[Rfam]
Description:
A member of the RNA family "tRNA" from Polytolypa hystricis, 88 nucleotides long. It scores 52 bits against the family's covariance model. Lineage of the source: Eukaryota > leotiomyceta > Eurotiomycetidae > Polytolypa > Polytolypa hystricis. It is annotated as a transfer RNA.
RNA sequence: GUCUCCGUGGCGCAAUUGGUCUAGCGCGUCUGACUGUUAUUCUAACAGGUUAAUCAGGAGGUCGGAAGUUCGAGCCUUCCCGGGGACG
Numbered sequence: 001g002u003c004u005c006c007g008u009g010g011c012g013c014a015a016u017u018g019g020u021c022u023a024g025c026g027c028g029u030c031u032g033a034c035u036g037u038u039a040u041u042c043u044a045a046c047a048g049g050u051u052a053a054u055c056a057g058g059a060g061g062u063c064g065g066a067a068g069u070u071c072g073a074g075c076c077u078u079c080c081c082g083g084g085g086a087c088g
Stems, first nucleotide, its partner, number of pairs: 001087007010027004029058005064080005